[Rfam]
RNA sequence: GGAUUCUGAUAUGCCUUACUGUCUGAGUUACGUACGGUGUACGCGGUUACACACACACACGCUAAUGCUCGGUGGAAAGUCUCCGGAUCUUAUGCAGAGAGUGCAGCAGUGUCAAGCUGUCAGCCUCCAGAAUGCGAAACCAUUGACGGGACUGCUUCGGCAGGAUCUGGUUAUCGUACUGGAGGUGCUGAUCAUUCUCACAUUAAGGGAUGUUAAGGGCGCCACAUAUAAGGCGUAACAUAACGGGGCUUAUUGUAUCGGAAUU
Numbered sequence: 001g002g003a004u005u006c007u008g009a010u011a012u013g014c015c016u017u018a019c020u021g022u023c024u025g026a027g028u029u030a031c032g033u034a035c036g037g038u039g040u041a042c043g044c045g046g047u048u049a050c051a052c053a054c055a056c057a058c059a060c061g062c063u064a065a066u067g068c069u070c071g072g073u074g075g076a077a078a079g080u081c082u083c084c085g086g087a088u089c090u091u092a093u094g095c096a097g098a099g100a101g102u103g104c105a106g107c108a109g110u111g112u113c114a115a116g117c118u119g120u121c122a123g124c125c126u127c128c129a130g131a132a133u134g135c136g137a138a139a140c141c142a143u144u145g146a147c148g149g150g151a152c153u154g155c156u157u158c159g160g161c162a163g164g165a166u167c168u169g170g171u172u173a174u175c176g177u178a179c180u181g182g183a184g185g186u187g188c189u190g191a192u193c194a195u196u197c198u199c200a201c202a203u204u205a206a207g208g209g210a211u212g213u214u215a216a217g218g219g220c221g222c223c224a225c226a227u228a229u230a231a232g233g234c235g236u237a238a239c240a241u242a243a244c245g246g247g248g249c250u251u252a253u254u255g256u257a258u259c260g261g262a263a264u265u
Base pairs, nucleotide, nucleotide: 002265003264004263005262006261007260008259009258010257011256014217016215018213019212023072024071025070026069027068028067037052038051039050040049041048077251078250079249081248082247083246084245093105094104095103096102110116119189121187125184126183127182128181129180130179134177135176136175137174143169145167146166153162154161155160219236220235221234222233223232

The record is a 265-nucleotide sequence from Pediculus humanus, which matches "RNase MRP" in Rfam.
The match comes from Rfam's covariance-model search (94 bits).
Rfam classes the family as a ribozyme.
The base pairs follow the family's consensus structure, which is taken from published work.